A member of the RNA family "SAH (S-adenosyl-L-homocysteine) riboswitch aptamer" from Rhodoferax sp. AJA081-3, 130 nucleotides long. It scores 52 bits against the family's covariance model. NCBI's taxonomy places the organism under Bacteria, Pseudomonadota, Betaproteobacteria, Burkholderiales, Rhodoferax.

[Rfam]
Nucleotides: 130
Base pairs, nucleotide, nucleotide: 003080004079005078006077007076008075021068022067023066024065026063
Number, partner (000 for none) and nucleotide at each position: 001000c002000c003080u004079u005078c006077c007076g008075a009000g010000g011000a012000g013000c014000g015000u016000u017000g018000c019000a020000g021068c022067u023066c024065g025000a026063a027000a028000c029000c030000c031000u032000g033000g034000c035000c036000u037000g038000a039000a040000u041000g042000a043000a044000a045000c046000g047000a048000a049000u050000u051000c052000a053000g054000g055000g056000u057000g058000c059000a060000g061000g062000a063026u064000g065024c066023g067022a068021g069000u070000g071000a072000g073000g074000c075008u076007c077006g078005g079004a080003a081000c082000a083000c084000g085000u086000u087000g088000u089000c090000u091000u092000c093000c094000a095000u096000a097000a098000a099000a100000a101000g102000u103000c104000a105000a106000c107000g108000c109000a110000a111000g112000u113000c114000a115000a116000c117000g118000g119000c120000g121000c122000u123000c124000a125000c126000c127000c128000a129000c130000u